The record is a 153-nucleotide sequence from Blautia liquoris, which matches "Clostridiales-1 RNA" in Rfam.
The family's RNA type in Rfam is small RNA.
NCBI's taxonomy places the organism under Bacteria, Bacillota, Clostridia, Lachnospiraceae, Blautia.
The family's consensus secondary structure is taken from published work.
RNA sequence: UGAUACAGGGUCGAAAAGUUAUGCUUUUUCAUGCUCGCAUGAAAAAACAUAACCUUGAGACCCGAACAAACAUGAGAAUGAAGCCCGACAGGGCGGAAUUUGAAUGUUUGUAGGAUUGCGGGAGCGCAAAGCGCAGAGCAAUCCGUGGUAUCA
Numbered sequence: 001u002g003a004u005a006c007a008g009g010g011u012c013g014a015a016a017a018g019u020u021a022u023g024c025u026u027u028u029u030c031a032u033g034c035u036c037g038c039a040u041g042a043a044a045a046a047a048c049a050u051a052a053c054c055u056u057g058a059g060a061c062c063c064g065a066a067c068a069a070a071c072a073u074g075a076g077a078a079u080g081a082a083g084c085c086c087g088a089c090a091g092g093g094c095g096g097a098a099u100u101u102g103a104a105u106g107u108u109u110g111u112a113g114g115a116u117u118g119c120g121g122g123a124g125c126g127c128a129a130a131g132c133g134c135a136g137a138g139c140a141a142u143c144c145g146u147g148g149u150a151u152c153a
Stems, first nucleotide, its partner, number of pairs: 001153006009062004015056002018053006025046001029042005066111008076101004083094004113144007124134004